[Rfam]
RNA sequence: GCAUUUGCUCCAUACUUCUUUACAUUCCAUACGUUUGUCAUUUGACUAUGGGAAGUAAGGAAGCACGGAACCCACAC
Numbered sequence: 001g002c003a004u005u006u007g008c009u010c011c012a013u014a015c016u017u018c019u020u021u022a023c024a025u026u027c028c029a030u031a032c033g034u035u036u037g038u039c040a041u042u043u044g045a046c047u048a049u050g051g052g053a054a055g056u057a058a059g060g061a062a063g064c065a066c067g068g069a070a071c072c073c074a075c076a077c
Stems, first nucleotide, its partner, number of pairs: 007071001009069003013065001015063009025053001027051005
Shown here is a 77-nucleotide RNA from Daphnia magna, a member of the family "mir-1 microRNA precursor family". Rfam describes the family as follows. This family represents the microRNA (miRNA) mir-1 family. miRNAs are transcribed as ~70nt precursors (modelled here) and subsequently processed by the Dicer enzyme to give a ~22nt product. In this case the mature sequence comes from the 3' arm of the precursor.